[Rfam]
RNA sequence: CAGCGUCUUCAGGGCGGGGUGCAAUUCCCCACCGGCGGUAGGCGGCGCACAGGGCAACCUGGUGGCCGCGAGCCCGCGAGCGCCCUGGCCGCCUCCAAGCGGCCAGGGGUCAGCAGACUCGGUGCGACGGGGCAAUGCCCAGUCCAGUCCGAGGCCGACGGUCAUAGUCCGGAUGAAAGAAGAUCCGC
Number, nucleotide and partner (000 for none) at each position: 001c000002a000003g186004c000005g184006u183007c182008u181009u180010c179011a000012g000013g000014g000015c000016g000017g029018g028019g027020u000021g000022c000023a000024a000025u000026u000027c019028c018029c017030c000031a168032c167033c157034g156035g077036c076037g075038g074039u000040a000041g000042g000043c000044g000045g000046c000047g000048c000049a000050c000051a000052g000053g000054g000055c000056a000057a000058c000059c000060u000061g000062g000063u000064g000065g000066c000067c000068g000069c000070g000071a000072g155073c154074c038075c037076g036077c035078g000079a000080g114081c113082g000083c000084c000085c000086u000087g000088g000089c000090c000091g000092c000093c000094u000095c000096c000097a000098a000099g000100c000101g000102g000103c000104c000105a000106g000107g000108g000109g000110u000111c000112a000113g081114c080115a000116g000117a000118c153119u152120c151121g150122g149123u000124g000125c000126g000127a000128c000129g000130g000131g000132g000133c000134a000135a000136u000137g000138c000139c000140c000141a000142g000143u000144c000145c000146a000147g000148u000149c122150c121151g120152a119153g118154g073155c072156c034157g033158a000159c171160g170161g169162u000163c000164a000165u000166a000167g032168u031169c161170c160171g159172g000173a000174u000175g000176a000177a000178a000179g010180a009181a008182g007183a006184u005185c000186c003187g000188c000
Annotation: The record is a 188-nucleotide RNA sequence from Simplicispira hankyongi, which matches "FMN riboswitch aptamer (RFN element)" in Rfam. The base pairs follow the family's consensus structure, which is taken from published work. Gene Ontology term of the family: FMN binding. It scores 79 bits against the family's covariance model.